[Rfam]
RNA sequence: CUUGGUUUCCUUGUUCCUAAAACAAGGUGGUGCGGAUGGAGGUAACACUCCCGCCCUGUUUCUUGCUUCAGGUCAAAAAGCAAGUGGCGUGCAUGAAA
Numbered sequence: 001c002u003u004g005g006u007u008u009c010c011u012u013g014u015u016c017c018u019a020a021a022a023c024a025a026g027g028u029g030g031u032g033c034g035g036a037u038g039g040a041g042g043u044a045a046c047a048c049u050c051c052c053g054c055c056c057u058g059u060u061u062c063u064u065g066c067u068u069c070a071g072g073u074c075a076a077a078a079a080g081c082a083a084g085u086g087g088c089g090u091g092c093a094u095g096a097a098a
Base pairs, nucleotide, nucleotide: 009027010026011025012024013023014022015021037053038052039051041049042048055072056071057070058069062084063083064082065081066080067079